[Rfam]
This 161-nucleotide RNA sequence from Streptococcus agalactiae belongs to the Rfam family "DUF2800 RNA".
Taxonomically the source falls in Streptococcus agalactiae (Bacteria, Bacillota, Lactobacillales, Streptococcaceae).

RNA sequence: UUCAUGUUUGUUGACCUACUAGCUAUGGGUUUAUUCGGAACAAGCAUGGAAAAACUAAAUAGUUCAGCUCACUAACCGAAUAAGGCGAGCUGCAAGUAAUGAAUGAAGGAAACUUCAGAAAAGCUUGUGGUCUUUUUAUUGUGCCUUAUUUUAGCUGAUUU
Numbered sequence: 001u002u003c004a005u006g007u008u009u010g011u012u013g014a015c016c017u018a019c020u021a022g023c024u025a026u027g028g029g030u031u032u033a034u035u036c037g038g039a040a041c042a043a044g045c046a047u048g049g050a051a052a053a054a055c056u057a058a059a060u061a062g063u064u065c066a067g068c069u070c071a072c073u074a075a076c077c078g079a080a081u082a083a084g085g086c087g088a089g090c091u092g093c094a095a096g097u098a099a100u101g102a103a104u105g106a107a108g109g110a111a112a113c114u115u116c117a118g119a120a121a122a123g124c125u126u127g128u129g130g131u132c133u134u135u136u137u138a139u140u141g142u143g144c145c146u147u148a149u150u151u152u153a154g155c156u157g158a159u160u161u
Base pairs, nucleotide, nucleotide: 001050002049003048004047005046006045007044008043009042010041011040012039013031014030015029016028017027033081034080035079036078037077038076065157066156067155068154069153071151089131090130091129092128093127104117105116106115107114108113